[Rfam]
RNA sequence: AUCGAACAGCGAAUCAGGUUUCGGAGGUAGGUCUCAUGUUUGUCGAUAAUGUGGUGCUCGCAGGGGUGGUCACGGUCGGCCUGAUGGUCGCCUUCCUCGGAGGCUUCGGAUAUUUCAUCUGGAAGGACGCGCACAAGAAGCGCUGAGUUCUUCCAGAUUCAAAGAGCACGCAAGGCAUUUAGGCGACCUAUGGUCGCCUUUUUUUUG
Numbered sequence: 001a002u003c004g005a006a007c008a009g010c011g012a013a014u015c016a017g018g019u020u021u022c023g024g025a026g027g028u029a030g031g032u033c034u035c036a037u038g039u040u041u042g043u044c045g046a047u048a049a050u051g052u053g054g055u056g057c058u059c060g061c062a063g064g065g066g067u068g069g070u071c072a073c074g075g076u077c078g079g080c081c082u083g084a085u086g087g088u089c090g091c092c093u094u095c096c097u098c099g100g101a102g103g104c105u106u107c108g109g110a111u112a113u114u115u116c117a118u119c120u121g122g123a124a125g126g127a128c129g130c131g132c133a134c135a136a137g138a139a140g141c142g143c144u145g146a147g148u149u150c151u152u153c154c155a156g157a158u159u160c161a162a163a164g165a166g167c168a169c170g171c172a173a174g175g176c177a178u179u180u181a182g183g184c185g186a187c188c189u190a191u192g193g194u195c196g197c198c199u200u201u202u203u204u205u206u207g
Base pairs, nucleotide, nucleotide: 007102010099051061052060053059078089079088080087081086166176167175169174182198183197184196185195186194187193

Overview:
The record is a 207-nucleotide sequence from Stutzerimonas stutzeri, which matches "PhrS" in Rfam. The organism belongs to Stutzerimonas stutzeri, within Bacteria. On this family, see Livny et al., Nucleic Acids Res 2006: "Identification of 17 Pseudomonas aeruginosa sRNAs and prediction of sRNA-encoding genes in 10 diverse pathogens using the bioinformatic tool sRNAPredict2". It is one of the family's seed sequences. The base pairs follow the family's consensus structure, which was predicted with CMfinder.